[Rfam]
Nucleotides: 045
Stems, first nucleotide, its partner, number of pairs: 006021006
Number, partner (000 for none) and nucleotide at each position: 001000c002000c003000a004000a005000c006021g007020g008019c009018u010017c011016u012000u013000u014000u015000a016011a017010g018009a019008g020007c021006c022000a023000c024000c025000c026000a027000c028000u029000u030000c031000a032000a033000c034000a035000u036000g037000a038000a039000a040000g041000a042000u043000c044000a045000a